[Rfam]
RNA sequence: CUUCAACGACCCGAGCCACAGCGGCUUCUCGGGAUCGCGGUCCUUUCCGUAGGUCGCGAGCAGCGCCUGCGCCUC
Numbered sequence: 001c002u003u004c005a006a007c008g009a010c011c012c013g014a015g016c017c018a019c020a021g022c023g024g025c026u027u028c029u030c031g032g033g034a035u036c037g038c039g040g041u042c043c044u045u046u047c048c049g050u051a052g053g054u055c056g057c058g059a060g061c062a063g064c065g066c067c068u069g070c071g072c073c074u075c
Stems, first nucleotide, its partner, number of pairs: 014026004032070001038065002043060003047056001049054001
This 75-nucleotide sequence from Streptomyces yokosukanensis belongs to the Rfam family "ASpks TB sRNA".
The family's consensus secondary structure is taken from published work.
The literature on the family includes a 2009 paper in Mol Microbiol by Arnvig and Young, "Identification of small RNAs in Mycobacterium tuberculosis".
It scores 75 bits against the family's covariance model.